[Rfam]
This 73-nucleotide RNA sequence from Alligator sinensis belongs to the Rfam family "Mammalian CPEB3 ribozyme". The literature on the family includes a 2006 paper in Science by Salehi-Ashtiani et al., "A genomewide search for ribozymes reveals an HDV-like sequence in the human CPEB3 gene".
Nucleotides: 073
Stems, first nucleotide, its partner, number of pairs: 014045005021073007028040002050062005
Number, partner (000 for none) and nucleotide at each position: 001000a002000g003000c004000c005000g006000g007000c008000a009000g010000g011000a012000u013000a014045g015044g016043g017042u018041c019000a020000u021073a022072g023071c024070a025069g026068a027067g028040g029039c030000a031000u032000u033000c034000a035000c036000a037000u038000c039029g040028u041018g042017a043016c044015c045014c046000c047000u048000g049000u050062c051061a052060g053059g054058u055000a056000a057000u058054a059053c060052c061051u062050g063000u064000g065000a066000a067027u068026u069025c070024u071023g072022c073021u